[Rfam]
RNA sequence: AGGACAUUUCAAAGAGGGCUUUAGGGCUGUGAAAUCAGAAGCUCUUAACCCUGUGACCAAAAGAUGAAGUUCCCCUAGGAUGCCAGAUCCAUGCAGUGGUGCUAUUUUCCUGAGGAGAUACAGUU
Numbered sequence: 001a002g003g004a005c006a007u008u009u010c011a012a013a014g015a016g017g018g019c020u021u022u023a024g025g026g027c028u029g030u031g032a033a034a035u036c037a038g039a040a041g042c043u044c045u046u047a048a049c050c051c052u053g054u055g056a057c058c059a060a061a062a063g064a065u066g067a068a069g070u071u072c073c074c075c076u077a078g079g080a081u082g083c084c085a086g087a088u089c090c091a092u093g094c095a096g097u098g099g100u101g102c103u104a105u106u107u108u109c110c111u112g113a114g115g116a117g118a119u120a121c122a123g124u125u
Stems, first nucleotide, its partner, number of pairs: 002058002005055003014046009025036002071118002074115002077111004085103002089099004
Small nucleolar RNA SNORA25: a 125-nucleotide RNA sequence from Urocitellus parryii. The base pairs follow the family's consensus structure, which was predicted with RNAfold. Rfam classes the family as an H/ACA-box small nucleolar RNA. Lineage of the source: Eukaryota > Tetrapoda > Sciuromorpha > Xerinae > Urocitellus. About the family: ACA25 is a member of the H/ACA class of snoRNA that guide the sites of modification of uridines to pseudouridines.